A member of the RNA family "Archaeal large subunit ribosomal RNA" from Promethearchaeum syntrophicum, 372 nucleotides of a longer RNA. The family is grouped with related families in Rfam's "LSU clan".

[Rfam]
RNA sequence: GGAAGUAUAGAUUGUUAGGGAAAUCGGCAAAAUAGAGCGGUAACUUCGGAAUAACGCUUGCUUGGAAUCUUUGCGGUUAAACGCGGGGGAUUCUAAGUUGCAAUAACUAUGUGCACCCGACUGUUAAAUACAAACAUAGCUUUCUGCAAGACCGAAAGGUUGUGUACAGAAAGUGAAUCCUGCCCAGUGGUAGUCAGUCAAAACCGGGUUCAACCGGACUAAGCUCUACUAAACGGCGGGAGUAACUAUAACUCUCUUAAGGUAGCCAAAUGCCUUGUCGUGUAAGUUACGACGUGCAUGAACGGAUCAACGCGGUGCAUACUGUCCCAACAUUCUCUCCGUGAACCUACAGGACGGCGAACGGUCCGUCAC
Number, nucleotide and partner (000 for none) at each position: 001g340002g339003a338004a000005g000006u000007a000008u000009a336010g335011a334012u000013u332014g331015u330016u329017a000018g327019g326020g325021a000022a000023a000024u000025c000026g000027g000028c000029a000030a000031a000032a000033u000034a000035g059036a058037g057038c056039g055040g000041u000042a000043a000044c049045u000046u000047c000048g000049g044050a000051a000052u000053a000054a000055c039056g038057c037058u036059u035060g098061c097062u096063u095064g094065g093066a092067a091068u090069c089070u088071u087072u086073g000074c000075g000076g000077u000078u000079a000080a000081a000082c000083g000084c000085g000086g072087g071088g070089g069090a068091u067092u066093c065094u064095a063096a062097g061098u060099u103100g000101c000102a000103a099104u000105a000106a000107c000108u000109a000110u000111g320112u319113g318114c317115a316116c315117c314118c312119g311120a000121c000122u136123g135124u134125u000126a000127a000128a000129u000130a000131c000132a000133a000134a124135c123136a122137u000138a000139g174140c173141u172142u171143u170144c169145u168146g167147c164148a000149a000150g161151a160152c159153c158154g000155a000156a000157a000158g153159g152160u151161u150162g000163u000164g147165u000166a000167c146168a145169g144170a143171a142172a141173g140174u139175g000176a000177a307178u306179c305180c304181u000182g237183c236184c235185c000186a000187g234188u233189g230190g229191u228192a227193g226194u000195c000196a225197g224198u223199c000200a000201a000202a000203a000204c217205c216206g215207g214208g000209u000210u000211c000212a000213a000214c207215c206216g205217g204218a000219c000220u000221a000222a000223g198224c197225u196226c193227u192228a191229c190230u189231a000232a000233a188234c187235g184236g183237c182238g256239g255240g254241a253242g252243u251244a000245a000246c000247u000248a000249u000250a000251a243252c242253u241254c240255u239256c238257u261258u000259a000260a000261g257262g000263u000264a000265g000266c000267c000268a000269a000270a000271u000272g000273c000274c000275u000276u000277g293278u292279c291280g290281u289282g288283u000284a000285a000286g000287u000288u282289a281290c280291g279292a278293c277294g000295u000296g000297c000298a000299u000300g000301a000302a000303c000304g180305g179306a178307u177308c000309a000310a000311c119312g118313c000314g117315g116316u115317g114318c113319a112320u111321a000322c000323u000324g000325u020326c019327c018328c000329a016330a015331c014332a013333u000334u011335c010336u009337c000338u003339c002340c001341g000342u000343g000344a000345a000346c000347c000348u000349a000350c000351a000352g000353g370354a369355c368356g367357g366358c000359g000360a000361a000362c000363g000364g000365u000366c357367c356368g355369u354370c353371a000372c000